The family of this 344-nucleotide RNA sequence is "permuted transfer-messenger RNA". The family's consensus secondary structure is taken from published work. It scores 66 bits against the family's covariance model.

[Rfam]
RNA sequence: GAUGUUGAAAUGAAGGACAGGAACACGGGAGUUCGAUUCUCCCCAGGUCCACCAAAAAUAUAUUACCCUACCCAAGGGGUUGUCAGCAGGGUUGGAAGGACUGACACAUGCAAAAACUAUUCAGCCGUUGUAAUGGCGUGUUGUUGGGAAGGUUCAAAAUCCCGGUAUAAAUGAAUAGCGAAUCCGUAAUGUAUUUUUGAUGGGCCUGCACUGGUUUCGACUCUUGGAGAUAAUGGAGAUUGACAGUUGGUCACACAAGACUUUAAAAUGAAGACAGAGAAGUCUCUAAUCACAAAGAAUUAAACGACAACGUUGAUUCAUUCGAUUUCGCCAUGGCGGCCUAA
Numbered sequence: 001g002a003u004g005u006u007g008a009a010a011u012g013a014a015g016g017a018c019a020g021g022a023a024c025a026c027g028g029g030a031g032u033u034c035g036a037u038u039c040u041c042c043c044c045a046g047g048u049c050c051a052c053c054a055a056a057a058a059u060a061u062a063u064u065a066c067c068c069u070a071c072c073c074a075a076g077g078g079g080u081u082g083u084c085a086g087c088a089g090g091g092u093u094g095g096a097a098g099g100a101c102u103g104a105c106a107c108a109u110g111c112a113a114a115a116a117c118u119a120u121u122c123a124g125c126c127g128u129u130g131u132a133a134u135g136g137c138g139u140g141u142u143g144u145u146g147g148g149a150a151g152g153u154u155c156a157a158a159a160u161c162c163c164g165g166u167a168u169a170a171a172u173g174a175a176u177a178g179c180g181a182a183u184c185c186g187u188a189a190u191g192u193a194u195u196u197u198u199g200a201u202g203g204g205c206c207u208g209c210a211c212u213g214g215u216u217u218c219g220a221c222u223c224u225u226g227g228a229g230a231u232a233a234u235g236g237a238g239a240u241u242g243a244c245a246g247u248u249g250g251u252c253a254c255a256c257a258a259g260a261c262u263u264u265a266a267a268a269u270g271a272a273g274a275c276a277g278a279g280a281a282g283u284c285u286c287u288a289a290u291c292a293c294a295a296a297g298a299a300u301u302a303a304a305c306g307a308c309a310a311c312g313u314u315g316a317u318u319c320a321u322u323c324g325a326u327u328u329c330g331c332c333a334u335g336g337c338g339g340c341c342u343a344a
Base pairs, nucleotide, nucleotide: 005238006237018226019225021223022222027043028042029041030040031039044208045207046206047205048204049203050202249262250261251260252259